Background:
Rfam assigns this 141-nucleotide sequence from Haemaphysalis longicornis to the family "U4 spliceosomal RNA". Rfam classes the family as a spliceosomal small nuclear RNA. A search with the family's covariance model found it, with a score of 116 bits. Clan: U4 clan. U4 small nuclear RNA (U4 snRNA) is a component of the major U2-dependent spliceosome.
[Rfam]
RNA sequence: AGCUUUGCGCAGAGGCAGUGUCGCAUGCGAUGACGAUUAGCGGAGCAGCGACUAUUGCUAGUUGAAAACUUUUCCCAAUACCCCGCCUGGACGACGUGCAACACCGUCGGCCGAGGCAAUUUUUGGAAGGCCCCACGAGGC
Numbered sequence: 001a002g003c004u005u006u007g008c009g010c011a012g013a014g015g016c017a018g019u020g021u022c023g024c025a026u027g028c029g030a031u032g033a034c035g036a037u038u039a040g041c042g043g044a045g046c047a048g049c050g051a052c053u054a055u056u057g058c059u060a061g062u063u064g065a066a067a068a069c070u071u072u073u074c075c076c077a078a079u080a081c082c083c084c085g086c087c088u089g090g091a092c093g094a095c096g097u098g099c100a101a102c103a104c105c106g107u108c109g110g111c112c113g114a115g116g117c118a119a120u121u122u123u124u125g126g127a128a129g130g131c132c133c134c135a136c137g138a139g140g141c
Stems, first nucleotide, its partner, number of pairs: 020052005026047003034042002085117003088113003092109005130141003